[Rfam]
ZMP/ZTP riboswitch aptamer (pfl RNA motif): an 80-nucleotide sequence from Paenibacillus thalictri.
Nucleotides: 080
Base pairs, nucleotide, nucleotide: 004051005050006049007048008047009046010045011044012043015040016039017068018067019066020065021064025036026035027034028033059073060072061071
Number, partner (000 for none) and nucleotide at each position: 001000u002000a003000g004051u005050c006049c007048a008047u009046g010045u011044g012043u013000a014000a015040c016039u017068g018067g019066c020065g021064u022000a023000a024000c025036g026035c027034g028033g029000g030000g031000a032000a033028c034027c035026g036025c037000g038000g039016g040015g041000g042000a043012g044011c045010a046009c047008a048007u049006g050005g051004a052000a053000c054000a055000u056000a057000c058000g059073g060072c061071c062000g063000u064021a065020c066019g067018c068017c069000u070000g071061g072060g073059c074000a075000a076000a077000a078000g079000u080000a
The family's consensus secondary structure is taken from published work.
It scores 62 bits against the family's covariance model.